[Rfam]
RNA sequence: GCAGUCUUAUACACUAUGGUAAGCCUGUAAUUAAAUAGUAUAAGCAAUGUUUAAUUAUAUUA
Dot-bracket structure: ......[[[[[[...............(((((((((.]]]]]].....))))))))).....
RNA: Coronavirus 3' UTR pseudoknot